Annotation: The family of this 149-nucleotide RNA is "c-di-AMP riboswitch aptamer (ydaO/yuaA leader)".
RNA sequence: UCGUCGAAAUCGCCGAGUUCCGCCCUGGGGGCGGAAGCGGGGGACCCAACAACCGGUCCGCCGGUACGGGGCGCAUCGCCGCAAGGCGUAGGGCAAUCUCUUCGGCCCGAGCCCGUCAGCUAACCUCGCAGGCGUCGAAGGGAGAGCAC
Numbered sequence: 001u002c003g004u005c006g007a008a009a010u011c012g013c014c015g016a017g018u019u020c021c022g023c024c025c026u027g028g029g030g031g032c033g034g035a036a037g038c039g040g041g042g043g044a045c046c047c048a049a050c051a052a053c054c055g056g057u058c059c060g061c062c063g064g065u066a067c068g069g070g071g072c073g074c075a076u077c078g079c080c081g082c083a084a085g086g087c088g089u090a091g092g093g094c095a096a097u098c099u100c101u102u103c104g105g106c107c108c109g110a111g112c113c114c115g116u117c118a119g120c121u122a123a124c125c126u127c128g129c130a131g132g133c134g135u136c137g138a139a140g141g142g143a144g145a146g147c148a149c
Stems, first nucleotide, its partner, number of pairs: 011134004018036006037129006047068001069114003077088004091108004
Dot-bracket structure: ..........((((...((((((.......))))))((((((....(....................)(((.....((((....))))..((((..........))))...))).........)))))).))))...............